RNA sequence: GCAAGAGAGGUUCGAAAACUCCCUCUAUAAAAAACUAAAGAACU
Numbered sequence: 001g002c003a004a005g006a007g008a009g010g011u012u013c014g015a016a017a018a019c020u021c022c023c024u025c026u027a028u029a030a031a032a033a034a035c036u037a038a039a040g041a042a043c044u
Base pairs, nucleotide, nucleotide: 006026007025008024009023010022016036
Dot-bracket structure: .....(((((.....[.....))))).........]........